[Rfam]
RNA sequence: AGCUUUUGUCUUAAGUCAAAGUUUUAAAAUUUUGACCAACUUUAUAGACAAAAGUAGCAGCAUUUAUGGCACUAAAUUAGCACAUUUCAACUCGAAUCUAGUGAUACUAAUUUAGUGCCAUAAAUGCUGCUAUUUUUGUCUAUAAAGUUGGUCAAAAUUUUAAAACUUUGACUUAAGACAAAAGCUA
Numbered sequence: 001a002g003c004u005u006u007u008g009u010c011u012u013a014a015g016u017c018a019a020a021g022u023u024u025u026a027a028a029a030u031u032u033u034g035a036c037c038a039a040c041u042u043u044a045u046a047g048a049c050a051a052a053a054g055u056a057g058c059a060g061c062a063u064u065u066a067u068g069g070c071a072c073u074a075a076a077u078u079a080g081c082a083c084a085u086u087u088c089a090a091c092u093c094g095a096a097u098c099u100a101g102u103g104a105u106a107c108u109a110a111u112u113u114a115g116u117g118c119c120a121u122a123a124a125u126g127c128u129g130c131u132a133u134u135u136u137u138g139u140c141u142a143u144a145a146a147g148u149u150g151g152u153c154a155a156a157a158u159u160u161u162a163a164a165a166c167u168u169u170g171a172c173u174u175a176a177g178a179c180a181a182a183a184g185c186u187a
Stems, first nucleotide, its partner, number of pairs: 005182005011176016031156005045142008055132003059128010072115006
RNA: MIR1435 microRNA precursor family